Shown here is a 76-nucleotide sequence from Neodiprion lecontei, a member of the family "mir-745 microRNA precursor family". The base pairs follow the family's consensus structure, which was predicted with RNAalifold. Lineage of the source: Eukaryota > Eumetazoa > Hymenoptera > Diprioninae > Neodiprion. It scores 67 bits against the family's covariance model.
RNA sequence: AACUACAGUGCGGCUCAUCAUCGGGCACUUUGCUAUUUUAAAUGCAAGCUGCCUAGUGAAGGGCAACAUUGUGGUU
Numbered sequence: 001a002a003c004u005a006c007a008g009u010g011c012g013g014c015u016c017a018u019c020a021u022c023g024g025g026c027a028c029u030u031u032g033c034u035a036u037u038u039u040a041a042a043u044g045c046a047a048g049c050u051g052c053c054u055a056g057u058g059a060a061g062g063g064c065a066a067c068a069u070u071g072u073g074g075u076u
Base pairs, nucleotide, nucleotide: 003074004073005072006071008069009068010067013064014063015062016061018059019058020057021056024053025052026051027050032049033048034047